[Rfam]
RNA sequence: GCUCUGGCUAGGAUAUCAUCAUAUACUGUAAGUUCACUAUUAAUGUACUACAGUAUAGAUGAUGUACUAUUCAGUGCUC
Dot-bracket structure: ......(..((.((((((((.(((((((((.((...........))..))))))))))))))))).))..)........
The family of this 79-nucleotide sequence from Scyliorhinus torazame is "mir-144 microRNA precursor family". Its family is annotated with RISC complex and miRNA-mediated post-transcriptional gene silencing in the Gene Ontology. Taxonomically the source falls in Scyliorhinus (Eukaryota, Chordata, Craniata, Galeomorphii). A reference for the family is Xu et al. (2006), "Identification of microRNAs from different tissues of chicken embryo and adult chicken", FEBS Lett. The match comes from Rfam's covariance-model search (76 bits).